[Rfam]
Shown here is a 92-nucleotide RNA from Orenia marismortui, a member of the family "THF (Tetrahydrofolate) riboswitch aptamer". Tetrahydrofolate (THF) riboswitch was first reported for Ames et al. as an RNA motif in 5' untranslated (5'-UTR)regions of folate transport and biosynthesis genes in Firmicutes genomes.
Nucleotides: 092
Base pairs, nucleotide, nucleotide: 001092002091003090004089005088010080011079012078013077014076015075016074017073018072019070020069021068025054026053028052029051030050031049032048033047034046038086039085040084041083042082058067059066060065
Number, partner (000 for none) and nucleotide at each position: 001092g002091g003090c004089a005088g006000a007000g008000u009000a010080a011079g012078a013077u014076u015075u016074g017073u018072g019070c020069g021068u022000c023000a024000a025054g026053u027000g028052u029051u030050a031049g032048a033047a034046g035000a036000u037000g038086g039085g040084a041083u042082g043000u044000u045000g046034c047033u048032u049031c050030u051029a052028a053026a054025c055000g056000a057000a058067a059066g060065a061000u062000u063000u064000u065060u066059c067058u068021g069020c070019g071000g072018u073017a074016c075015a076014a077013a078012u079011c080010u081000g082042c083041a084040u085039c086038c087000a088005c089004u090003g091002c092001c
The base pairs follow the family's consensus structure, which is taken from published work.